Overview:
This 219-nucleotide RNA from Thauera sinica belongs to the Rfam family "permuted transfer-messenger RNA". The organism belongs to Thauera, within Bacteria. Bacterial tmRNA, also known as 10Sa RNA or SsrA, is named for its dual tRNA and mRNA-like properties. Its role is to liberate the mRNA from a stalled ribosome. To accomplish this part of the tmRNA is used as a reading frame that ends in a translation stop signal. The broken mRNA is replaced in the ribosome by the tmRNA and translation of the tmRNA leads to addition of a proteolysis tag to the incomplete protein enabling recognition by a protease. Recently a number of permuted tmRNA genes have been found encoded in two parts. tmRNAs have been identified in eubacteria and some chloroplasts but are absent from archaeal and eukaryote nuclear genomes. Its family is annotated with RNA catabolic process in the Gene Ontology.
[Rfam]
RNA sequence: GGUUGUAAUUCCGGCAAACCGGAGACGUUCUGGACGGGGGUUCGAUUCCCCCCAGCUCCACCAGAAGAAGGCACGGCGACAACGCUGCGUUUUCUUCUGAGGGGGCUGACCUGGUCUCGACAGGGCGGGCAAGGGUGAGCAGGCAACCCGAGAGGCGACGGACGUAAUCCGCGCAAAACCACAAACGCCAACGAUGAGCGUUUCGCACUGGCCGCCUAA
Numbered sequence: 001g002g003u004u005g006u007a008a009u010u011c012c013g014g015c016a017a018a019c020c021g022g023a024g025a026c027g028u029u030c031u032g033g034a035c036g037g038g039g040g041u042u043c044g045a046u047u048c049c050c051c052c053c054a055g056c057u058c059c060a061c062c063a064g065a066a067g068a069a070g071g072c073a074c075g076g077c078g079a080c081a082a083c084g085c086u087g088c089g090u091u092u093u094c095u096u097c098u099g100a101g102g103g104g105g106c107u108g109a110c111c112u113g114g115u116c117u118c119g120a121c122a123g124g125g126c127g128g129g130c131a132a133g134g135g136u137g138a139g140c141a142g143g144c145a146a147c148c149c150g151a152g153a154g155g156c157g158a159c160g161g162a163c164g165u166a167a168u169c170c171g172c173g174c175a176a177a178a179c180c181a182c183a184a185a186c187g188c189c190a191a192c193g194a195u196g197a198g199c200g201u202u203u204c205g206c207a208c209u210g211g212c213c214g215c216c217u218a219a
Stems, first nucleotide, its partner, number of pairs: 001148005015137002026127003030123003036052005053108007149164002